Shown here is a 101-nucleotide sequence from Flavobacterium sangjuense, a member of the family "Flavo-1 RNA".
The match comes from Rfam's covariance-model search (61 bits).
The family has 201 seed sequences and 7,497 matches in Rfam 15.1.

RNA sequence: UUCUAGCCCAGAUGGAAGCGGCAUCCUUUUUACGUCAGUUCGAGUUGGCGAAGCCAGUAUCGAGAACUAGUAAAAAGAUAGAGCGAACAGCCGGAAAUAGC
Numbered sequence: 001u002u003c004u005a006g007c008c009c010a011g012a013u014g015g016a017a018g019c020g021g022c023a024u025c026c027u028u029u030u031u032a033c034g035u036c037a038g039u040u041c042g043a044g045u046u047g048g049c050g051a052a053g054c055c056a057g058u059a060u061c062g063a064g065a066a067c068u069a070g071u072a073a074a075a076a077g078a079u080a081g082a083g084c085g086a087a088c089a090g091c092c093g094g095a096a097a098u099a100g101c
Base pairs, nucleotide, nucleotide: 009093011091013089014088018084019083023079024078025077029074030073031072032071033070038067039066040065041064
The organism belongs to Flavobacterium, within Bacteria.